[Rfam]
RNA sequence: UCAUGCGUGGUAAGUACAUAACGAACUAUUCUUUCAUCUUUUAUUAAAAAAUACCGUGCGCUAGCUACAAUAGUAGCAUACACUAAUUUUGGGAGGAAACUUUCCUUGGAUUAU
Numbered sequence: 001u002c003a004u005g006c007g008u009g010g011u012a013a014g015u016a017c018a019u020a021a022c023g024a025a026c027u028a029u030u031c032u033u034u035c036a037u038c039u040u041u042u043a044u045u046a047a048a049a050a051a052u053a054c055c056g057u058g059c060g061c062u063a064g065c066u067a068c069a070a071u072a073g074u075a076g077c078a079u080a081c082a083c084u085a086a087u088u089u090u091g092g093g094a095g096g097a098a099a100c101u102u103u104c105c106u107u108g109g110a111u112u113a114u
Stems, first nucleotide, its partner, number of pairs: 004075003008067004013062003017058002027053004032048003094114001097112002100109002
Dot-bracket structure: ...(((.((((.(((.((........((((.(((...........))).))))...)).))).)))).....)))..................(..((.((......)).)).)
RNA: U5 spliceosomal RNA
Organism: Actinidia chinensis